Bacterial large subunit ribosomal RNA: a 260-nucleotide part of an RNA from Selenomonas sputigena.
RNA sequence: AGAAACCUGAAGGGGGCUGCUCCUAGUACGAGAGGACCGGAGUGGACGGACCAACGGUGUACCAGUCAUGGCGCCAGCCGUGCAGCUGGGUAGCUGCGUCCGGAAAGGAUAAACGCUGAAAGCAUCUAAGCGUGAAACCAGCCCUAAGAUGAAGUUUCUCACGGAGUAAUCCGGUAAGGCGCCUCAAAGACGAUGAGGUUGAUAGGCGGGGAGUGGAAGCGCCGCAAGGCGUGCAGCCGACCCGUACUAAUACGCCGAGG
Numbered sequence: 001a002g003a004a005a006c007c008u009g010a011a012g013g014g015g016g017c018u019g020c021u022c023c024u025a026g027u028a029c030g031a032g033a034g035g036a037c038c039g040g041a042g043u044g045g046a047c048g049g050a051c052c053a054a055c056g057g058u059g060u061a062c063c064a065g066u067c068a069u070g071g072c073g074c075c076a077g078c079c080g081u082g083c084a085g086c087u088g089g090g091u092a093g094c095u096g097c098g099u100c101c102g103g104a105a106a107g108g109a110u111a112a113a114c115g116c117u118g119a120a121a122g123c124a125u126c127u128a129a130g131c132g133u134g135a136a137a138c139c140a141g142c143c144c145u146a147a148g149a150u151g152a153a154g155u156u157u158c159u160c161a162c163g164g165a166g167u168a169a170u171c172c173g174g175u176a177a178g179g180c181g182c183c184u185c186a187a188a189g190a191c192g193a194u195g196a197g198g199u200u201g202a203u204a205g206g207c208g209g210g211g212a213g214u215g216g217a218a219g220c221g222c223c224g225c226a227a228g229g230c231g232u233g234c235a236g237c238c239g240a241c242c243c244g245u246a247c248u249a250a251u252a253c254g255c256c257g258a259g260g
Stems, first nucleotide, its partner, number of pairs: 001159006008152001011145004017045007047102005055096003062089005067082006107139002113133005162173003175258001178256004182198005203249003206245005213237001219232005

It is one of the family's seed sequences. Taxonomically the source falls in Selenomonas sputigena (Bacteria, Bacillota, Negativicutes, Selenomonadales).